RNA sequence: UACUUCCAAAUCCUAUCUCCACCUCUACGUGGUGAUCGCUGGGAGUUCUUUCUUAAUGAAAAACUGCAGAGGGAGAAGG
Numbered sequence: 001u002a003c004u005u006c007c008a009a010a011u012c013c014u015a016u017c018u019c020c021a022c023c024u025c026u027a028c029g030u031g032g033u034g035a036u037c038g039c040u041g042g043g044a045g046u047u048c049u050u051u052c053u054u055a056a057u058g059a060a061a062a063a064c065u066g067c068a069g070a071g072g073g074a075g076a077a078g079g
Stems, first nucleotide, its partner, number of pairs: 012079003016075001018073003021033003044065004049060002052058001